Rfam assigns this 142-nucleotide sequence from Gracilibacillus dipsosauri to the family "PyrR binding site". On this family, see Bonner et al., Nucleic Acids Res 2001: "Molecular recognition of pyr mRNA by the Bacillus subtilis attenuation regulatory protein PyrR".

[Rfam]
RNA sequence: GUUACCUUUAAUUCAGUCCUGUGAGACUGGCAAGGUGGAAUAGAUUCAAAGUCUGUGAAGUUCAUAACCAUAGCUAAUCUGGUAGUCUAUGGUUGUAUCAAUCCGCAAACACCUUGCUUUUUUUAGCAAGGUGUUUUUGUCU
Numbered sequence: 001g002u003u004a005c006c007u008u009u010a011a012u013u014c015a016g017u018c019c020u021g022u023g024a025g026a027c028u029g030g031c032a033a034g035g036u037g038g039a040a041u042a043g044a045u046u047c048a049a050a051g052u053c054u055g056u057g058a059a060g061u062u063c064a065u066a067a068c069c070a071u072a073g074c075u076a077a078u079c080u081g082g083u084a085g086u087c088u089a090u091g092g093u094u095g096u097a098u099c100a101a102u103c104c105g106c107a108a109a110c111a112c113c114u115u116g117c118u119u120u121u122u123u124u125a126g127c128a129a130g131g132u133g134u135u136u137u138u139g140u141c142u
Stems, first nucleotide, its partner, number of pairs: 003037006013030006065095008073086004107136012
Dot-bracket structure: ..((((((....((((((......)))))).))))))...........................((((((((((((......)))).))))))))...........((((((((((((......))))))))))))......
Rfam classes the family as a cis-regulatory element. Pairs were carried over by alignment from the consensus structure, which is taken from published work. Rfam's curators write: This family represents the PyrR binding site and terminator structure. This RNA structure is found upstream of a variety of genes involved in pyrimidine biosynthesis and transport. The alignment also includes a portion of the antiterminator structure.